RNA: EFASI RNA
Nucleotides: 149
Stems, first nucleotide, its partner, number of pairs: 002149004008144006019042002021039006043104004051064005083095005
Number, partner (000 for none) and nucleotide at each position: 001000u002149c003148a004147g005146c006000a007000c008144g009143a010142c011141a012140u013139c014000g015000a016000u017000g018000g019042c020041g021039a022038c023037a024036c025035c026034a027000g028000u029000a030000a031000u032000u033000c034026u035025g036024g037023u038022g039021u040000g041020u042019g043104g044103a045102g046101a047000u048000a049000g050000g051064c052063u053062g054061a055060c056000g057000a058000a059000a060055g061054u062053c063052a064051g065000g066000c067000c068000a069000g070000c071000a072000u073000a074000a075000g076000c077000u078000g079000c080000g081000a082000a083095u084094g085093g086092g087091u088000a089000a090000c091087a092086c093085c094084c095083a096000u097000g098000g099000u100000a101046u102045c103044u104043c105000g106000u107000a108000u109000g110000a111000g112000u113000u114000c115000a116000a117000c118000a119000u120000u121000u122000c123000g124000c125000c126000c127000a128000c129000c130000c131000g132000a133000u134000g135000c136000a137000c138000a139013g140012a141011u142010g143009u144008c145000u146005g147004c148003u149002g